[Rfam]
The record is an 83-nucleotide RNA from Pelagicoccus mobilis, which matches "ZMP/ZTP riboswitch aptamer (pfl RNA motif)" in Rfam. The base pairs follow the family's consensus structure, which is taken from published work. A search with the family's covariance model found it, with a score of 53 bits.
RNA sequence: UUUCCGAAUUGCGACUGGCGAAGCAAAGGCGGGAUUGACCGCUGGGAAGCGGUUCGGUUCUAUCGCGCGCCUGGGUAGAACUU
Numbered sequence: 001u002u003u004c005c006g007a008a009u010u011g012c013g014a015c016u017g018g019c020g021a022a023g024c025a026a027a028g029g030c031g032g033g034a035u036u037g038a039c040c041g042c043u044g045g046g047a048a049g050c051g052g053u054u055c056g057g058u059u060c061u062a063u064c065g066c067g068c069g070c071c072u073g074g075g076u077a078g079a080a081c082u083u
Stems, first nucleotide, its partner, number of pairs: 004057009015046002017071004029042004060078005
Dot-bracket structure: ...(((((((((..(([[[[........((((......))))..))..)))))))))..(((((...]]]]..))))).....